This 188-nucleotide sequence from Lachancea fermentati belongs to the Rfam family "Small nucleolar RNA snR80". Its family is annotated with RNA processing and nucleolus in the Gene Ontology. The match comes from Rfam's covariance-model search (62 bits). Rfam classes the family as an H/ACA-box small nucleolar RNA. The organism belongs to Lachancea, within Eukaryota. The family's consensus secondary structure was predicted with WAR.
RNA sequence: GAACGUUUGCAAAAAUUAGUACAGGUACUCCGAAUACAGUUCUUUCAUGCCCUUCCAUUCUAUAUCUGCUUAAGUGCUGAGCUCCUAUUUAGAAGCAAACAAGAUUAAUACCUGUCAGUUACUCACCAAACUAUGCCAUGCAAGUGUAACUUGCUGGGGUUAGAUUGGUCCAUUUCAAUGGCAGACAU
Numbered sequence: 001g002a003a004c005g006u007u008u009g010c011a012a013a014a015a016u017u018a019g020u021a022c023a024g025g026u027a028c029u030c031c032g033a034a035u036a037c038a039g040u041u042c043u044u045u046c047a048u049g050c051c052c053u054u055c056c057a058u059u060c061u062a063u064a065u066c067u068g069c070u071u072a073a074g075u076g077c078u079g080a081g082c083u084c085c086u087a088u089u090u091a092g093a094a095g096c097a098a099a100c101a102a103g104a105u106u107a108a109u110a111c112c113u114g115u116c117a118g119u120u121a122c123u124c125a126c127c128a129a130a131c132u133a134u135g136c137c138a139u140g141c142a143a144g145u146g147u148a149a150c151u152u153g154c155u156g157g158g159g160u161u162a163g164a165u166u167g168g169u170c171c172a173u174u175u176c177a178a179u180g181g182c183a184g185a186c187a188u
Base pairs, nucleotide, nucleotide: 007098008097009096023086024085025084028081030079032077035062036061038059039058040057113183114182115181116180126168127167128166129165131163132162133161135160136159137158